[Rfam]
RNA: Small nucleolar RNA SNORD93
RNA sequence: UGGCCAAGGAUGAGAACUCUAAUCUGAUGGCAUAUGCUUCUUCUGCUAUGAUGGAUUAAAGGAUUUACCUGAGGCCA
Numbered sequence: 001u002g003g004c005c006a007a008g009g010a011u012g013a014g015a016a017c018u019c020u021a022a023u024c025u026g027a028u029g030g031c032a033u034a035u036g037c038u039u040c041u042u043c044u045g046c047u048a049u050g051a052u053g054g055a056u057u058a059a060a061g062g063a064u065u066u067a068c069c070u071g072a073g074g075c076c077a
Stems, first nucleotide, its partner, number of pairs: 002076004